[Rfam]
About this RNA
This 217-nucleotide part of an RNA from Trichoderma cornu-damae belongs to the Rfam family "Ascomycota telomerase RNA". The match comes from Rfam's covariance-model search (368 bits). Clan: Telomerase clan.

RNA sequence: UCCCCCACAGUUUCCCGACUCUCGUUUUCCGAAAGGAAUGCCUAUCGCAGACCCCUCUACCCAGACUUGCUCACCCGCAAUAUGCCGCUUCCGUUCCUGCUACAGGACCUCGUUGAAUGCCGCAGUUGGAUCUAUUGCGGUCCGUCUCUGUCCGGCACCCAGACAGCCAAGUCUAACUGAGGGAACGAGUUUCGGAACUUAACCCUUAAGUAUACAU
Numbered sequence: 001u002c003c004c005c006c007a008c009a010g011u012u013u014c015c016c017g018a019c020u021c022u023c024g025u026u027u028u029c030c031g032a033a034a035g036g037a038a039u040g041c042c043u044a045u046c047g048c049a050g051a052c053c054c055c056u057c058u059a060c061c062c063a064g065a066c067u068u069g070c071u072c073a074c075c076c077g078c079a080a081u082a083u084g085c086c087g088c089u090u091c092c093g094u095u096c097c098u099g100c101u102a103c104a105g106g107a108c109c110u111c112g113u114u115g116a117a118u119g120c121c122g123c124a125g126u127u128g129g130a131u132c133u134a135u136u137g138c139g140g141u142c143c144g145u146c147u148c149u150g151u152c153c154g155g156c157a158c159c160c161a162g163a164c165a166g167c168c169a170a171g172u173c174u175a176a177c178u179g180a181g182g183g184a185a186c187g188a189g190u191u192u193c194g195g196a197a198c199u200u201a202a203c204c205c206u207u208a209a210g211u212a213u214a215c216a217u
Stems, first nucleotide, its partner, number of pairs: 009199003015195004
Gene Ontology terms of the family: telomerase activity, telomerase catalytic core complex and telomere maintenance via telomerase. The source organism's lineage runs through Eukaryota, sordariomyceta, Sordariomycetes, Hypocreomycetidae and Trichoderma. Rfam classes the family as a non-coding RNA gene. Pairs were carried over by alignment from the consensus structure.